[Rfam]
RNA sequence: UGAAGUGCACUGACACUAGGACGUGUGGCUGUCGUAGGUUGGUGGGAACCAGGCUUGCCCAGGGUCAGUGUCCCCGGUGUUGUGU
Number, nucleotide and partner (000 for none) at each position: 001u000002g000003a081004a080005g000006u079007g078008c077009a000010c000011u000012g072013a071014c070015a069016c068017u067018a000019g066020g000021a000022c063023g000024u061025g060026u000027g059028g058029c057030u000031g054032u053033c052034g000035u000036a000037g050038g049039u048040u047041g000042g000043u000044g000045g000046g000047a040048a039049c038050c037051a000052g033053g032054c031055u000056u000057g029058c028059c027060c025061a024062g000063g022064g000065u000066c019067a017068g016069u015070g014071u013072c012073c000074c000075c000076g000077g008078u007079g006080u004081u003082g000083u000084g000085u000